[Rfam]
RNA: DUF805b RNA
RNA sequence: AACAGGGAAGCCGAAAACUGAAAUAAAGAGUAGGCA
Numbered sequence: 001a002a003c004a005g006g007g008a009a010g011c012c013g014a015a016a017a018c019u020g021a022a023a024u025a026a027a028g029a030g031u032a033g034g035c036a
Base pairs, nucleotide, nucleotide: 003020004019005018010035011034012033